[Rfam]
RNA: U12 minor spliceosomal RNA
RNA sequence: UUGCCUUAAACUACUGAGUAAGGAAAACAAAGUGAGUGGUGAGAGCCGCGCAAAACACAAGAUUUGUGCGCAUGAAUUUAUGGAGGGGUUAUAGGCUGGCCAAGCUUUGAUGCUGCUUACUUUUGCAGAACUCGCUUGAGCGGGCCUCCC
Numbered sequence: 001u002u003g004c005c006u007u008a009a010a011c012u013a014c015u016g017a018g019u020a021a022g023g024a025a026a027a028c029a030a031a032g033u034g035a036g037u038g039g040u041g042a043g044a045g046c047c048g049c050g051c052a053a054a055a056c057a058c059a060a061g062a063u064u065u066g067u068g069c070g071c072a073u074g075a076a077u078u079u080a081u082g083g084a085g086g087g088g089u090u091a092u093a094g095g096c097u098g099g100c101c102a103a104g105c106u107u108u109g110a111u112g113c114u115g116c117u118u119a120c121u122u123u124u125g126c127a128g129a130a131c132u133c134g135c136u137u138g139a140g141c142g143g144g145c146c147u148c149c150c
Stems, first nucleotide, its partner, number of pairs: 004023005033052002036049004056068003087150002093147005099141001101138002104135002113128004